The family of this 128-nucleotide RNA sequence is "xerDC RNA". Rfam's curators put it in the seed alignment. Rfam classes the family as a cis-regulatory element.
[Rfam]
RNA sequence: GCUGUCUGCCGGCAGCACAUGGCACGCGCGGCCGCUGGCCGCAUCCGUCUGUACGGUAGUGCCUGCCGCCGCUGUGGCCACUGGCUACAGCAGGACGUUUGUGCGUCCCAUGCGGCGUCUUACUCACC
Numbered sequence: 001g002c003u004g005u006c007u008g009c010c011g012g013c014a015g016c017a018c019a020u021g022g023c024a025c026g027c028g029c030g031g032c033c034g035c036u037g038g039c040c041g042c043a044u045c046c047g048u049c050u051g052u053a054c055g056g057u058a059g060u061g062c063c064u065g066c067c068g069c070c071g072c073u074g075u076g077g078c079c080a081c082u083g084g085c086u087a088c089a090g091c092a093g094g095a096c097g098u099u100u101g102u103g104c105g106u107c108c109c110a111u112g113c114g115g116c117g118u119c120u121u122a123c124u125c126a127c128c
Stems, first nucleotide, its partner, number of pairs: 001016005021063005028042005045056003065116005071091008093108001095106003